Shown here is a 150-nucleotide part of an RNA from Peptococcaceae bacterium SCADC1_2_3, a member of the family "Bacterial small subunit ribosomal RNA".
The source organism's lineage runs through Bacteria, Bacillati, Clostridia, Eubacteriales and Peptococcaceae.
For this family Rfam cites "Crystal structure of the ribosome at 5.5 A resolution" (Yusupov et al., Science, 2001).
The family is grouped with related families in Rfam's "SSU clan".
RNA sequence: CCGCCCGUCACACCACGAAAGUCAGCAACACCCGAAGCCGGUGACUUAACUGCGGUAACGUGGAGAGAGCCGUCUAAGGUGGGGUUGGUAAUUGGGGUGAAGUCGUAACAAGGUAGCCGUAUUGGAAGGUGCGGCUGGAUCACCUCCUUU
Numbered sequence: 001c002c003g004c005c006c007g008u009c010a011c012a013c014c015a016c017g018a019a020a021g022u023c024a025g026c027a028a029c030a031c032c033c034g035a036a037g038c039c040g041g042u043g044a045c046u047u048a049a050c051u052g053c054g055g056u057a058a059c060g061u062g063g064a065g066a067g068a069g070c071c072g073u074c075u076a077a078g079g080u081g082g083g084g085u086u087g088g089u090a091a092u093u094g095g096g097g098u099g100a101a102g103u104c105g106u107a108a109c110a111a112g113g114u115a116g117c118c119g120u121a122u123u124g125g126a127a128g129g130u131g132c133g134g135c136u137g138g139a140u141c142a143c144c145u146c147c148u149u150u
Base pairs, nucleotide, nucleotide: 001112003109006105007104011099012098013097014096016094017093018092021089022088023087024086025085026084029081030080031079032078037074039072040071041070042069045067046066047065050063051062052061053060054059114137115136116135117134118133119132120131121130122129123128